[Rfam]
RNA sequence: UGACGUUCUCGGGGCGGGGUGGAAUUCCCCACCGGCGGUAACGCUGCUUGAAUAACUGGCUACCCUUAAACAAGGGGCAAGAUAUUCCUGUUGCGAAGCCCGCGAGCGCCUGCUGCUCACAAAGCGGUGGGGUCAAGCAGAUACCGGUGCAAAUCCGGAGCCGACGGUCACAGUCCGGAUGUGAGAGAACGCAG
Dot-bracket structure: ...(((((((......(((.......))).[[((((((.............................................................))))..((.............................))...(.((((.......)))))..)).(((.....]]))).......)))))))...
RNA: FMN riboswitch aptamer (RFN element)
Organism: Formicincola oecophyllae